[Rfam]
RNA sequence: GGAGGCGUGUCCGGUCUGGUGACCGGCGCGGUCUUCAAAACCGUGGAACGGCAGACGCUGCCGCUGGCGGGUUCGAUUCCCGUCCGCCUCC
Number, nucleotide and partner (000 for none) at each position: 001g091002g090003a089004g088005g087006c086007g085008u000009g083010u000011c026012c025013g024014g023015u022016c021017u000018g000019g000020u000021g016022a015023c014024c013025g012026g011027c045028g044029c043030g042031g041032u040033c000034u000035u000036c000037a000038a000039a000040a032041c031042c030043g029044u028045g027046g000047a065048a000049c063050g062051g061052c000053a000054g000055a000056c000057g000058c000059u000060g000061c051062c050063g049064c000065u047066g000067g000068c082069g081070g080071g079072u000073u000074c000075g000076a000077u000078u000079c071080c070081c069082g068083u009084c000085c007086g006087c005088c004089u003090c002091c001
This 91-nucleotide RNA sequence from Mycobacterium avium belongs to the Rfam family "Selenocysteine transfer RNA". Lineage of the source: Bacteria > Mycobacteriaceae > Mycobacterium avium complex (MAC) > Mycobacterium avium > Mycobacterium avium subsp. paratuberculosis. The sequence is in the family's curated seed alignment.